[Rfam]
The family of this 76-nucleotide RNA sequence from Anguilla anguilla is "mir-27 microRNA precursor family". The source organism's lineage runs through Eukaryota, Bilateria, Gnathostomata, Euteleostomi and Anguilla. For this family Rfam cites "The developmental miRNA profiles of zebrafish as determined by small RNA cloning" (Chen et al., Genes Dev, 2005). It scores 58 bits against the family's covariance model.
RNA sequence: CGCAGCGGCAGGGCUUAGCGCACGUGUGAACACUGUGCAUUCCUCAUGUUCACAGUGGUUAAGUUCUGCCGCCCGC
Numbered sequence: 001c002g003c004a005g006c007g008g009c010a011g012g013g014c015u016u017a018g019c020g021c022a023c024g025u026g027u028g029a030a031c032a033c034u035g036u037g038c039a040u041u042c043c044u045c046a047u048g049u050u051c052a053c054a055g056u057g058g059u060u061a062a063g064u065u066c067u068g069c070c071g072c073c074c075g076c
Base pairs, nucleotide, nucleotide: 011066012065013064014063015062016061017060018059019058026053027052028051029050030049031048032047